[Rfam]
RNA sequence: UCUGCGUCCAUGCUGAAGCCCAUCAGGAUCGCAGAUGUCGAGAACACCGUGAUGGGCACGGAAGACCCGGCAGUGCGGCUCCUCACGGAGCCUUUGGGGUUAAUCGAGAAUGUUCGACAGGCCAACCUUCGCGUCUGAACCCGACAGGUCAUCUUUCGCAGGCGUGCACGAAGGAAACC
Number, nucleotide and partner (000 for none) at each position: 001u000002c000003u000004g000005c000006g000007u000008c000009c000010a000011u164012g163013c162014u161015g000016a000017a000018g057019c056020c055021c054022a053023u052024c051025a050026g000027g000028a000029u000030c000031g000032c000033a000034g000035a000036u000037g000038u000039c000040g000041a000042g000043a000044a000045c000046a000047c000048c000049g000050u025051g024052a023053u022054g021055g020056g019057c018058a000059c158060g157061g156062a155063a154064g000065a000066c000067c000068c096069g095070g000071c000072a000073g000074u000075g000076c000077g000078g000079c000080u000081c000082c000083u000084c000085a000086c000087g000088g000089a000090g000091c000092c000093u000094u000095u069096g068097g142098g141099g140100u000101u000102a000103a000104u000105c116106g115107a114108g113109a000110a000111u000112g000113u108114u107115c106116g105117a000118c000119a136120g135121g134122c133123c000124a000125a000126c000127c000128u000129u000130c000131g000132c000133g122134u121135c120136u119137g000138a000139a000140c099141c098142c097143g000144a000145c000146a000147g000148g000149u000150c000151a000152u000153c000154u063155u062156u061157c060158g059159c000160a000161g014162g013163c012164g011165u000166g000167c000168a000169c000170g000171a000172a000173g000174g000175a000176a000177a000178c000179c000
RNA: c-di-AMP riboswitch aptamer (ydaO/yuaA leader)
Organism: Aeromicrobium sp.